[Rfam]
RNA: Small nucleolar RNA SNORA13
RNA sequence: UGCCUUUAUGUGUUGCUCUGUCAUUGUUGCCAUAAUGAUCAGGGUGUCAAACAAGGCAUACAGUGACACAUGUGGCUGCCUGUUGAAGGAGUUUCACCUGACUCUUUUAAGCGGCCGGCUGCAUGAACAAAC
Number, nucleotide and partner (000 for none) at each position: 001u000002g057003c056004c055005u054006u053007u000008a000009u000010g000011u049012g048013u000014u046015g045016c044017u043018c000019u000020g039021u038022c037023a036024u035025u034026g000027u000028u000029g000030c000031c000032a000033u000034a025035a024036u023037g022038a021039u020040c000041a000042g000043g017044g016045u015046g014047u000048c012049a011050a000051a000052c000053a006054a005055g004056g003057c002058a000059u000060a000061c000062a000063g000064u000065g000066a000067c000068a000069c125070a124071u123072g122073u000074g000075g119076c118077u117078g116079c000080c114081u113082g112083u111084u110085g000086a107087a106088g000089g000090a000091g102092u101093u000094u000095c000096a000097c000098c000099u000100g000101a092102c091103u000104c000105u000106u087107u086108u000109a000110a084111g083112c082113g081114g080115c000116c078117g077118g076119c075120u000121g000122c072123a071124u070125g069126a000127a000128c000129a000130a000131a000132c000